The record is a 97-nucleotide sequence from Solimonas marina, which matches "Glycine riboswitch aptamer" in Rfam.
About the family: This family represents the bacterial glycine riboswitch.
RNA sequence: AACGAAAUCGCAGGAGAGUGAUUUCAGGCUUCGAGUCUGCAAUCCGCCGAAGGCGCAAUCUCCCAUAAACGCUCAGGCCCAGUACUGCGAUUUUGUC
Numbered sequence: 001a002a003c004g005a006a007a008u009c010g011c012a013g014g015a016g017a018g019u020g021a022u023u024u025c026a027g028g029c030u031u032c033g034a035g036u037c038u039g040c041a042a043u044c045c046g047c048c049g050a051a052g053g054c055g056c057a058a059u060c061u062c063c064c065a066u067a068a069a070c071g072c073u074c075a076g077g078c079c080c081a082g083u084a085c086u087g088c089g090a091u092u093u094u095g096u097c
Base pairs, nucleotide, nucleotide: 006092007091008090009089010088011087012086013085020044021043022042023041046078047077048076049074050073053072054071055070059065

Record summary: Pairs were carried over by alignment from the consensus structure.